This 371-nucleotide sequence from Faecalibacterium sp. CAG:1138 belongs to the Rfam family "Bacterial RNase P class A".
The base pairs follow the family's consensus structure, which is taken from published work.
By type it is a ribozyme.
NCBI's taxonomy places the organism under Bacteria, Bacillati, Bacillota, Oscillospiraceae, Faecalibacterium.
RNA sequence: CGAGUUAGCCGGACGGUCGCAUCGGUUUCGAUGAGGAAAGUCCGAGCAUCACAGGGCAAGAAUGCAGGCUAACGGCCUGCGAAGGCGACUUCAGGGAUAGUGCAACAGAAAUAUACCGCACCGACCUUCGGGAAUGACGACGACUUUAUAAGCAUUUAUAUCCGUCGUCUAUGGUGUAAGGGUGGAACGGCGAGGUAAGAGCUCACCGGCGGCUUGGCGACAAGUCGGCCAUGUAAACCCCAUUCGAUGCAAGAGAAGUCAGACGCAGGGUGGCCCGCCCGUCUGCAAAAUCGCUUGAACGCGCAGGUAACUGCGCGUCUAGACAGAUGACCGUUCAAGACAGAACUCGGCUUACAGACUAAUCUCGCCGC
Dot-bracket structure: ((((((((.(((((((((.(((((....)))))....[[[.[[[[[((((....[[...((((((((((.....)))))(((((....)))).)((...(((((...........((((((((................................................))))))..)).......((.(((.......))).)).((((((((....))))))).)..)))..)))))))))))))...((.....((((....((((...]])))).)))).....))......((((((((....))))))))..........)))))))..........]]]]]]]].).).)))).))))....